RNA: Iron response element II
RNA sequence: CUGCUGUCAGCAGCAGUGUCUGCUACAGCUG
Numbered sequence: 001c002u003g004c005u006g007u008c009a010g011c012a013g014c015a016g017u018g019u020c021u022g023c024u025a026c027a028g029c030u031g
Base pairs, nucleotide, nucleotide: 001031003029004028005027006026007025009024010023011022012021013020014018